The record is a 451-nucleotide part of an RNA from uncultured marine crenarchaeote AD1000-23-H12, which matches "Archaeal large subunit ribosomal RNA" in Rfam. The literature on the family includes a 2001 paper in Science by Yusupov et al., "Crystal structure of the ribosome at 5.5 A resolution". Rfam links the family to the GO terms structural constituent of ribosome and ribosome.
RNA sequence: CCCAUCGAAGUGGAUCGUAGUCCAGAUUGGGUGGAUGUUGCUAACGCUGUAGAGCACUGAUGAGUGAACAAGGGGCCGAAAGGCUUCACUCACUUUUCAAACUCCGAAGGUGUUAGCGCAGUAGAAGCCUGAAUACGGGUUUAUGUGGGGUAAGCCUCAUAACCGAGAGGGGGACAACCCAGACUAGAGUUAACGCCCCGGAAUAUUGGCUAAGUGUCAAACUAAAGAGUGUCAUCGAGCCAAGACAGCAGGAAGGUAGGCUCAGAAGCAGCCAUUCUAUAAUGAGUGCGUAACAGCUCACCUGCCGAGCUUAAUGGCCUCGAAAAUGGACGGGGCUAAAGCCAAUUGCCGAUACUCUAGGCCACCAUGUAUAAUGGUGUGUGGUAGAUGGGCGUGAAAGUUGGGUGGAAGUAGGGCUGUGAAGUCCUAUGGACCGACUUUUAUUGCAGAU
Numbered sequence: 001c002c003c004a005u006c007g008a009a010g011u012g013g014a015u016c017g018u019a020g021u022c023c024a025g026a027u028u029g030g031g032u033g034g035a036u037g038u039u040g041c042u043a044a045c046g047c048u049g050u051a052g053a054g055c056a057c058u059g060a061u062g063a064g065u066g067a068a069c070a071a072g073g074g075g076c077c078g079a080a081a082g083g084c085u086u087c088a089c090u091c092a093c094u095u096u097u098c099a100a101a102c103u104c105c106g107a108a109g110g111u112g113u114u115a116g117c118g119c120a121g122u123a124g125a126a127g128c129c130u131g132a133a134u135a136c137g138g139g140u141u142u143a144u145g146u147g148g149g150g151u152a153a154g155c156c157u158c159a160u161a162a163c164c165g166a167g168a169g170g171g172g173g174a175c176a177a178c179c180c181a182g183a184c185u186a187g188a189g190u191u192a193a194c195g196c197c198c199c200g201g202a203a204u205a206u207u208g209g210c211u212a213a214g215u216g217u218c219a220a221a222c223u224a225a226a227g228a229g230u231g232u233c234a235u236c237g238a239g240c241c242a243a244g245a246c247a248g249c250a251g252g253a254a255g256g257u258a259g260g261c262u263c264a265g266a267a268g269c270a271g272c273c274a275u276u277c278u279a280u281a282a283u284g285a286g287u288g289c290g291u292a293a294c295a296g297c298u299c300a301c302c303u304g305c306c307g308a309g310c311u312u313a314a315u316g317g318c319c320u321c322g323a324a325a326a327u328g329g330a331c332g333g334g335g336c337u338a339a340a341g342c343c344a345a346u347u348g349c350c351g352a353u354a355c356u357c358u359a360g361g362c363c364a365c366c367a368u369g370u371a372u373a374a375u376g377g378u379g380u381g382u383g384g385u386a387g388a389u390g391g392g393c394g395u396g397a398a399a400g401u402u403g404g405g406u407g408g409a410a411g412u413a414g415g416g417c418u419g420u421g422a423a424g425u426c427c428u429a430u431g432g433a434c435c436g437a438c439u440u441u442u443a444u445u446g447c448a449g450a451u
Base pairs, nucleotide, nucleotide: 001392002391003390004389005388006387011024012023013022014021015020026134027132028131029130030129031128032127036120037119038118040117041116042115043114044113045112046111047110052105053103054102059098060097062095063094064093065092066091067090072087073086074085075084076083077082138164139163141162142161143160144159145158147157148156169180170179171178184360185359186358187357188356189355190354195349196348203347205346206345207344208343209342210341227321228320229319231318232317233316234315235314237312238311239310240309248305249304250303251302252301254278255277256276259273260272261271279283284299288297289296361382362381363379364378365377366376367375393446395443396442397441398440399439400438401437402436403435404434411430412429413428414427415426416425417424418423